[Rfam]
RNA sequence: AGGGCGGUAUCAAAUGAACUGCACCUAUACAAAGUGUCAUGUUAAUAAUUGUGUCUGCCUUGAUCCGGUAUCGGACAGGGACAGAGGG
Numbered sequence: 001a002g003g004g005c006g007g008u009a010u011c012a013a014a015u016g017a018a019c020u021g022c023a024c025c026u027a028u029a030c031a032a033a034g035u036g037u038c039a040u041g042u043u044a045a046u047a048a049u050u051g052u053g054u055c056u057g058c059c060u061u062g063a064u065c066c067g068g069u070a071u072c073g074g075a076c077a078g079g080g081a082c083a084g085a086g087g088g
Stems, first nucleotide, its partner, number of pairs: 001026003004022005010017002055084003058080005064075003